[Rfam]
RNA sequence: AUGUACUGAAGUACAUUGCGGUUCCUGUGCUCCGGCCGCCCCAAGCUGACAGGCGCUCGCGACGCUUUGAGAACC
Number, nucleotide and partner (000 for none) at each position: 001a000002u015003g014004u013005a012006c011007u000008g000009a000010a000011g006012u005013a004014c003015a002016u000017u000018g000019c034020g033021g032022u000023u000024c029025c000026u000027g000028u000029g024030c000031u000032c021033c020034g019035g000036c000037c000038g000039c000040c000041c000042c000043a000044a000045g000046c000047u072048g000049a000050c069051a068052g067053g000054c000055g000056c000057u000058c000059g000060c000061g000062a000063c000064g000065c000066u000067u052068u051069g050070a000071g000072a047073a000074c000075c000